[Rfam]
RNA sequence: UUUGAUAAAGCCAAACUCAUCGUGAGGUGAGGACGGAAAGCCACGGGUCUUAAAGAUUAAGACAGCCGGGUUGCCUUUA
Number, nucleotide and partner (000 for none) at each position: 001u079002u000003u000004g075005a000006u000007a000008a000009a000010g000011c036012c035013a000014a000015a000016c031017u030018c029019a028020u027021c026022g000023u000024g000025a000026g021027g020028u019029g018030a017031g016032g000033a000034c065035g012036g011037a000038a000039a072040g071041c070042c069043a000044c068045g067046g066047g063048u062049c061050u000051u000052a000053a000054a000055g000056a000057u000058u000059a000060a000061g049062a048063c047064a000065g034066c046067c045068g044069g042070g041071u040072u039073g000074c000075c004076u000077u000078u000079a001